[Rfam]
RNA sequence: AUAAGAGAUAGAGGAGCAGACAUGAACAGUAUUUCUGUGGAGUGCAGGCAGCACUGGGAAGCAGGGAGAAAGGCAUGAAUGCCGAAGCCGAUUUUUCUGCCGGAAAAAGACGGCUGGGACUGCAUUGAAUAAGUGCAGUACUGUCACACCCUGUUGUGGAGAACUAUCUUUUUU
Numbered sequence: 001a002u003a004a005g006a007g008a009u010a011g012a013g014g015a016g017c018a019g020a021c022a023u024g025a026a027c028a029g030u031a032u033u034u035c036u037g038u039g040g041a042g043u044g045c046a047g048g049c050a051g052c053a054c055u056g057g058g059a060a061g062c063a064g065g066g067a068g069a070a071a072g073g074c075a076u077g078a079a080u081g082c083c084g085a086a087g088c089c090g091a092u093u094u095u096u097c098u099g100c101c102g103g104a105a106a107a108a109g110a111c112g113g114c115u116g117g118g119a120c121u122g123c124a125u126u127g128a129a130u131a132a133g134u135g136c137a138g139u140a141c142u143g144u145c146a147c148a149c150c151c152u153g154u155u156g157u158g159g160a161g162a163a164c165u166a167u168c169u170u171u172u173u174u
Stems, first nucleotide, its partner, number of pairs: 006169006016082003021077004032067007086115005092109005116142002119139008144159005